The record is a 73-nucleotide sequence from Chiloscyllium punctatum, which matches "Small nucleolar RNA SNORD102" in Rfam. Gene Ontology terms of the family: RNA processing and nucleolus.
RNA sequence: UGCUCAAUGAUGAUUGAACUCCAAUGAUUGUAUGAGGCAAGUUGAGCAAAUUAUUUCACUGGCACUGAGAGCA
Number, nucleotide and partner (000 for none) at each position: 001u073002g072003c071004u070005c069006a000007a000008u000009g000010a000011u000012g000013a000014u000015u000016g000017a000018a000019c000020u000021c000022c000023a000024a000025u000026g000027a000028u000029u000030g000031u000032a000033u000034g000035a000036g000037g000038c000039a000040a000041g000042u000043u000044g000045a000046g000047c000048a000049a000050a000051u000052u000053a000054u000055u000056u000057c000058a000059c000060u000061g000062g000063c000064a000065c000066u000067g000068a000069g005070a004071g003072c002073a001
Description:
The family's RNA type in Rfam is C/D-box small nucleolar RNA.